Record summary:
A member of the RNA family "Small Cajal body-specific RNA 7" from Herpetotheres cachinnans, 328 nucleotides long. Rfam 15.1 lists 570 matches to the family in 531 species. The family's RNA type in Rfam is small Cajal body RNA. Pairs were carried over by alignment from the consensus structure. Taxonomically the source falls in Herpetotheres (Eukaryota, Sauropsida, Saurischia, Aves). Its family is annotated with nucleolus and RNA processing in the Gene Ontology.

[Rfam]
RNA sequence: UGGAAGUGAUGAAAUAGAGAUAAUUGGAUGUCUCUUUGAAUGGAGUGUGUGUGAUAAAUGGAAUUUAAACCAAGUCGGGGUGGGGGGUGGGGAGUGUGUGUCUGUGUGUGUCUGUGUGCACACGCAUGUAUAGAAAAGGCUUUGAAUGGGGGCACUGAUAAUGCAGUGCUGAUUCCGGAGUGCAUCUGAGGCAUGUUGUUAAGUUCUGGGGUGCCACUUUACAACAUUGCCAAUGAUUAAAGCCCAAAACAAGCCCACCAAGAUAAGCCUAGGCAUCCUAAAUCUCUGACAGGUUCAUUAAUGAAAGUGAUCCUGUGAUCUGAUCUGA
Dot-bracket structure: ((((.............................................................................................................................................................................................((((((.(.((.(....).))....).)))))).................................................................................................)))).